The record is a 60-nucleotide RNA from Limosilactobacillus ingluviei, which matches "Transposase-1 RNA" in Rfam.
RNA sequence: CUAUUAGAGGCAGUUAAUGUCGCUUUCCUCUUGUUAGGGAGGUGGGAAUACUGCUGUUGA
Dot-bracket structure: ........((((((.....((((...(((......).))..))))....)))))).....
The match comes from Rfam's covariance-model search (43 bits).